The family of this 265-nucleotide RNA from Bacillus subtilis is "Bacterial large signal recognition particle RNA". The sequence is in the family's curated seed alignment.
[Rfam]
RNA sequence: CCGUGCUAAGCGGGGAGGUAGCGGUGCCCUGUACCUGCAAUCCGCUCUAGCAGGGCCGAAUCCCUUCUCGAGGUUCGUUUACUUUAAGGUCUGCCUUAAGUAAGUGGUGUUGACGUUUGGGUCCUGCGCAAUGGGAAUUCAUGAACCAUGUCAGGUCCGGAAGGAAGCAGCAUUAAGUGAAACCUCUCAUGUGCCGCAGGGUUGCCUGGGCCGAGCUAACUGCUUAAGUAACGCUUAGGGUAGCGAAUCGACAGAAGGUGCACGG
Dot-bracket structure: ((((((...((((((.(.(...).).))))...(((((...........)))))))......((((((...(((((..((((((((((...((..((((((..(((((......((((((((((((((((.(((((.(((((.....((((....(((....)))....))))...)))))...)))))))...))))))...))))))))...))).)).)))))).))...)))))))))).)))))...)))))).))))))

The literature on the family includes a 2003 paper in Nucleic Acids Res by Rosenblad et al., "SRPDB: Signal Recognition Particle Database".
Gene Ontology terms of the family: signal recognition particle, plasma membrane targeting and SRP-dependent cotranslational protein targeting to membrane, signal sequence recognition.
Rfam describes the family as follows. The signal recognition particle (SRP) is a universally conserved ribonucleoprotein involved in the co-translational targeting of proteins to membranes.
Taxonomically the source falls in Bacillus (Bacteria, Bacillati, Bacillota, Caryophanales).